[Rfam]
RNA sequence: UGCUGUCAGUGAUGAUUAUAAUACAUUGGGAAUCUCUCUGAAAAAGAAUGAAAGACUGUGUUUGUCUGAUGCAGUA
Numbered sequence: 001u002g003c004u005g006u007c008a009g010u011g012a013u014g015a016u017u018a019u020a021a022u023a024c025a026u027u028g029g030g031a032a033u034c035u036c037u038c039u040g041a042a043a044a045a046g047a048a049u050g051a052a053a054g055a056c057u058g059u060g061u062u063u064g065u066c067u068g069a070u071g072c073a074g075u076a
Stems, first nucleotide, its partner, number of pairs: 001076006
This 76-nucleotide sequence from Sphaeramia orbicularis belongs to the Rfam family "Small nucleolar RNA SNORD79".
The family's consensus secondary structure was predicted with PFOLD.
A reference for the family is Galardi et al. (2002), "Purified box C/D snoRNPs are able to reproduce site-specific 2'-O-methylation of target RNA in vitro", Mol Cell Biol.